RNA sequence: UUACUAGUAACAGUAGGGUAUGAAGGAAGCUGGAUGGGACAUAUGGAACAUAACGAAAGUAAACCAAAGUUGGCUAAUGGAAUGGAUAACCUUGCAUUUUGUGGGAAUGUCCAAAAUUCGGAGUGAUUUCAUUAGUUAGGAUGGAUGGGUUCAUAUGAGGCAGACAAAC
Numbered sequence: 001u002u003a004c005u006a007g008u009a010a011c012a013g014u015a016g017g018g019u020a021u022g023a024a025g026g027a028a029g030c031u032g033g034a035u036g037g038g039a040c041a042u043a044u045g046g047a048a049c050a051u052a053a054c055g056a057a058a059g060u061a062a063a064c065c066a067a068a069g070u071u072g073g074c075u076a077a078u079g080g081a082a083u084g085g086a087u088a089a090c091c092u093u094g095c096a097u098u099u100u101g102u103g104g105g106a107a108u109g110u111c112c113a114a115a116a117u118u119c120g121g122a123g124u125g126a127u128u129u130c131a132u133u134a135g136u137u138a139g140g141a142u143g144g145a146u147g148g149g150u151u152c153a154u155a156u157g158a159g160g161c162a163g164a165c166a167a168a169c
Base pairs, nucleotide, nucleotide: 001016002015003014004013005012029169031167033165037161041156042155043154044153045152046151049147050146051145064144065143066142073136074135075134077132078131079130080129081128082127083126084112085111086110087109090105091104092103
A member of the RNA family "Group II catalytic intron D1-D4-3" from Clostridium sp. JN-9, 169 nucleotides long. A search with the family's covariance model found it, with a score of 55 bits. NCBI's taxonomy places the organism under Bacteria, Bacillota, Clostridia, Clostridiaceae, Clostridium. From the family's description: Group II introns are found in rRNA, tRNA and mRNA of organelles in fungi, plants and protists, and also in mRNA in bacteria. The base pairs follow the family's consensus structure.